[Rfam]
RNA sequence: UUUCCGACGUGCAAGUUAUAUGUUUAUGUUUAUGUUUAUGUUUAAACAUAAACAUAUAACUUGCACGUCGGAAA
Numbered sequence: 001u002u003u004c005c006g007a008c009g010u011g012c013a014a015g016u017u018a019u020a021u022g023u024u025u026a027u028g029u030u031u032a033u034g035u036u037u038a039u040g041u042u043u044a045a046a047c048a049u050a051a052a053c054a055u056a057u058a059a060c061u062u063g064c065a066c067g068u069c070g071g072a073a074a
Stems, first nucleotide, its partner, number of pairs: 003072005009066005016059005023052006
RNA: mir-965 microRNA precursor family
Organism: Sphaeramia orbicularis